[Rfam]
RNA sequence: CAGUGUUCUCAGGGCGGGGUGGAAUUCCCCACCGGCGGUAUCGGGAAAAAUCCCGGAGCCCGCGAGCGCUUUCGGGCGGUCCCGAAAGGUCAGCAGAUCCGGUGCGAUGCCGGAGCCGACGGUAUAGUCCGGAUGGAAGAGAGCAAUG
Numbered sequence: 001c002a003g004u005g006u007u008c009u010c011a012g013g014g015c016g017g018g019g020u021g022g023a024a025u026u027c028c029c030c031a032c033c034g035g036c037g038g039u040a041u042c043g044g045g046a047a048a049a050a051u052c053c054c055g056g057a058g059c060c061c062g063c064g065a066g067c068g069c070u071u072u073c074g075g076g077c078g079g080u081c082c083c084g085a086a087a088g089g090u091c092a093g094c095a096g097a098u099c100c101g102g103u104g105c106g107a108u109g110c111c112g113g114a115g116c117c118g119a120c121g122g123u124a125u126a127g128u129c130c131g132g133a134u135g136g137a138a139g140a141g142a143g144c145a146a147u148g
Base pairs, nucleotide, nucleotide: 004145005144006143007142008141009140010139017029018028019027031128032127033118034117035063036062037061038060058116059115066094067093098114099113100112101111102110120131121130122129
This 148-nucleotide RNA from Paramesorhizobium endophyticum belongs to the Rfam family "FMN riboswitch aptamer (RFN element)". Taxonomically the source falls in Paramesorhizobium (Bacteria, Pseudomonadati, Pseudomonadota, Hyphomicrobiales).